[Rfam]
RNA sequence: UCCACGGGCCGGAGGCUACUCCAUCAUGGUAGUCCCGGCACCGCACAGAAGGAGGAAAAAGCUACCGCUGCGGCUUGCGGUGCGGCAGUGUGGAGACCUGUCGUAACGUUCCAAAGGUCCUGCUCCUUUGGGGCGAGGUGGAAACUGGCGGAGGCCCUUCCACCAGAGCCGGACAUAUGGCG
Numbered sequence: 001u002c003c004a005c006g007g008g009c010c011g012g013a014g015g016c017u018a019c020u021c022c023a024u025c026a027u028g029g030u031a032g033u034c035c036c037g038g039c040a041c042c043g044c045a046c047a048g049a050a051g052g053a054g055g056a057a058a059a060a061g062c063u064a065c066c067g068c069u070g071c072g073g074c075u076u077g078c079g080g081u082g083c084g085g086c087a088g089u090g091u092g093g094a095g096a097c098c099u100g101u102c103g104u105a106a107c108g109u110u111c112c113a114a115a116g117g118u119c120c121u122g123c124u125c126c127u128u129u130g131g132g133g134c135g136a137g138g139u140g141g142a143a144a145c146u147g148g149c150g151g152a153g154g155c156c157c158u159u160c161c162a163c164c165a166g167a168g169c170c171g172g173a174c175a176u177a178u179g180g181c182g
Stems, first nucleotide, its partner, number of pairs: 006041001008039005014034005065080004071171006081105008090097002108134009137164007147156003